This 160-nucleotide RNA from Pipistrellus kuhlii belongs to the Rfam family "U1 spliceosomal RNA". The family has 100 seed sequences and 40,184 matches in Rfam 15.1. The match comes from Rfam's covariance-model search (116 bits). Taxonomically the source falls in Pipistrellus (Eukaryota, Teleostomi, Laurasiatheria, Vespertilionidae). It is annotated as a spliceosomal small nuclear RNA. The base pairs follow the family's consensus structure, which is taken from published work.
RNA sequence: AUACUUACCUGGCAGGUGGGAUACCAUGAUCAGGAAGAUGCUUUCUCCAGGGUGAAGCUUAUCUAUUGCACUCUGGAUAUGCUGAUCCCUGUGAUUUCCCAAAAUCUGGAAAAUUUGACUGCAUAAUUUGUGGUAGUGGGGGACUGUGUUUGUGCUCUAU
Numbered sequence: 001a002u003a004c005u006u007a008c009c010u011g012g013c014a015g016g017u018g019g020g021a022u023a024c025c026a027u028g029a030u031c032a033g034g035a036a037g038a039u040g041c042u043u044u045c046u047c048c049a050g051g052g053u054g055a056a057g058c059u060u061a062u063c064u065a066u067u068g069c070a071c072u073c074u075g076g077a078u079a080u081g082c083u084g085a086u087c088c089c090u091g092u093g094a095u096u097u098c099c100c101a102a103a104a105u106c107u108g109g110a111a112a113a114u115u116u117g118a119c120u121g122c123a124u125a126a127u128u129u130g131u132g133g134u135a136g137u138g139g140g141g142g143a144c145u146g147u148g149u150u151u152g153u154g155c156u157c158u159a160u
Base pairs, nucleotide, nucleotide: 012122013121014120015119016048018046019045020044021043023042025040026039027038049090050089051088052087054086056083057082058081060079061078062077063076064075092117093116094115095113096111097110099109100108143160146157148155